Rfam assigns this 594-nucleotide part of an RNA from Rhodotorula toruloides to the family "Eukaryotic small subunit ribosomal RNA".
A search with the family's covariance model found it, with a score of 1752 bits.
Clan: SSU clan.
A reference for the family is Yusupov et al. (2001), "Crystal structure of the ribosome at 5.5 A resolution", Science.
The family's consensus secondary structure is taken from published work.
Gene Ontology terms of the family: ribosome and structural constituent of ribosome.
The organism belongs to Rhodotorula, within Eukaryota.
The family has 90 seed sequences and 75,755 matches in Rfam 15.1.
RNA sequence: AGUCAUAUGCUUGUCUCAAAGAUUAAGCCAUGCAUGUCUAAGUUUAAGCAAUAAACAGUGAAACUGCGAAUGGCUCAUUAAAUCAGUCAUAGUCUAUUUGAUGGUACCUUACUACAUGGAUAACUGUGGUAAUUCUAGAGCUAAUACAUGCUGAAAAAUCCCGACUUCUGGAAGGGAUGUAUUUAUUAGAUCCAAAACCAACGGCCUUCGGGUCUCCUUGGUGAAUCAUGAUAACUGCUCGAAUCGCAUGGCCUUGUGCCGGCGAUGCUUCAUUCGAAUAUCUGCCCUAUCAACUUUCGAUGGUAGGAUAGAGGCCUACCAUGGUGAUGACGGGUAACGGGGAAUAAGGGUUCGAUUCCGGAGAGAGGGCCUGAGAAACGGCCCUCAGGUCUAAGGACACGCAGCAGGCGCGCAAAUUAUCCCCUGGCAACACUUUGCCGAGAUAGUGACAAUAAAUAACAAUGCAGGGCUCUUACGGGUCUUGCAAUUGGAAUGAGUACAAUUUAAAUCCCUUAACGAGGAUCAAUUGGAGGGCAAGUCUGGUGCCAGCAGCCGCGGUAAUUCCAGCUCCAAUAGCGUAUAUUAAAGUUGUUG
Numbered sequence: 001a002g003u004c005a006u007a008u009g010c011u012u013g014u015c016u017c018a019a020a021g022a023u024u025a026a027g028c029c030a031u032g033c034a035u036g037u038c039u040a041a042g043u044u045u046a047a048g049c050a051a052u053a054a055a056c057a058g059u060g061a062a063a064c065u066g067c068g069a070a071u072g073g074c075u076c077a078u079u080a081a082a083u084c085a086g087u088c089a090u091a092g093u094c095u096a097u098u099u100g101a102u103g104g105u106a107c108c109u110u111a112c113u114a115c116a117u118g119g120a121u122a123a124c125u126g127u128g129g130u131a132a133u134u135c136u137a138g139a140g141c142u143a144a145u146a147c148a149u150g151c152u153g154a155a156a157a158a159u160c161c162c163g164a165c166u167u168c169u170g171g172a173a174g175g176g177a178u179g180u181a182u183u184u185a186u187u188a189g190a191u192c193c194a195a196a197a198c199c200a201a202c203g204g205c206c207u208u209c210g211g212g213u214c215u216c217c218u219u220g221g222u223g224a225a226u227c228a229u230g231a232u233a234a235c236u237g238c239u240c241g242a243a244u245c246g247c248a249u250g251g252c253c254u255u256g257u258g259c260c261g262g263c264g265a266u267g268c269u270u271c272a273u274u275c276g277a278a279u280a281u282c283u284g285c286c287c288u289a290u291c292a293a294c295u296u297u298c299g300a301u302g303g304u305a306g307g308a309u310a311g312a313g314g315c316c317u318a319c320c321a322u323g324g325u326g327a328u329g330a331c332g333g334g335u336a337a338c339g340g341g342g343a344a345u346a347a348g349g350g351u352u353c354g355a356u357u358c359c360g361g362a363g364a365g366a367g368g369g370c371c372u373g374a375g376a377a378a379c380g381g382c383c384c385u386c387a388g389g390u391c392u393a394a395g396g397a398c399a400c401g402c403a404g405c406a407g408g409c410g411c412g413c414a415a416a417u418u419a420u421c422c423c424c425u426g427g428c429a430a431c432a433c434u435u436u437g438c439c440g441a442g443a444u445a446g447u448g449a450c451a452a453u454a455a456a457u458a459a460c461a462a463u464g465c466a467g468g469g470c471u472c473u474u475a476c477g478g479g480u481c482u483u484g485c486a487a488u489u490g491g492a493a494u495g496a497g498u499a500c501a502a503u504u505u506a507a508a509u510c511c512c513u514u515a516a517c518g519a520g521g522a523u524c525a526a527u528u529g530g531a532g533g534g535c536a537a538g539u540c541u542g543g544u545g546c547c548a549g550c551a552g553c554c555g556c557g558g559u560a561a562u563u564c565c566a567g568c569u570c571c572a573a574u575a576g577c578g579u580a581u582a583u584u585a586a587a588g589u590u591g592u593u594g
Stems, first nucleotide, its partner, number of pairs: 001584003005581007014454001016452001020447001021411001027409003031406003036067002041065003048059002074363003084284003089279002093277002099272003115150004124140002127137003158178005165171002183234006197222004204213003244265004249261004286334003293325003300322008338360004342353004365386006388400001389398003417445001419444003425440005460490003463486010497517002499514001501513001527573006540567004549556002